RNA: Bacteriophage Diversity-Generating Retroelement RNA
RNA sequence: ACCCGGCGCUGCUACGGCGUCGUCGGGCGACCGUCAGUUUUGUGGUCAGCCCCGCCCGGCCGGCUUCGGCAAAUACGUUACGAGGUUCGGAGAGCGGCGAGUACGGCGGCAACGCCCGAAAGCCGCGCCGAC
Numbered sequence: 001a002c003c004c005g006g007c008g009c010u011g012c013u014a015c016g017g018c019g020u021c022g023u024c025g026g027g028c029g030a031c032c033g034u035c036a037g038u039u040u041u042g043u044g045g046u047c048a049g050c051c052c053c054g055c056c057c058g059g060c061c062g063g064c065u066u067c068g069g070c071a072a073a074u075a076c077g078u079u080a081c082g083a084g085g086u087u088c089g090g091a092g093a094g095c096g097g098c099g100a101g102u103a104c105g106g107c108g109g110c111a112a113c114g115c116c117c118g119a120a121a122g123c124c125g126c127g128c129c130g131a132c
Stems, first nucleotide, its partner, number of pairs: 002026001004025005010019003063070002085132001087131004095125004105116004